The record is a 68-nucleotide RNA sequence, which matches "S15-Flavobacteria ribosomal protein leader" in Rfam. The sequence is in the family's curated seed alignment. For this family Rfam cites "Discovery of 20 novel ribosomal leader candidates in bacteria and archaea" (Eckert and Weinberg, BMC Microbiol, 2020).
RNA sequence: UACUUUUGCAACCGUUAUAUAAUAGCUAUAUAACAUACAUAAAAAUCAUUUAACACAAUAUUGGAAUG
Numbered sequence: 001u002a003c004u005u006u007u008g009c010a011a012c013c014g015u016u017a018u019a020u021a022a023u024a025g026c027u028a029u030a031u032a033a034c035a036u037a038c039a040u041a042a043a044a045a046u047c048a049u050u051u052a053a054c055a056c057a058a059u060a061u062u063g064g065a066a067u068g
Base pairs, nucleotide, nucleotide: 014034015033016032017031018030019029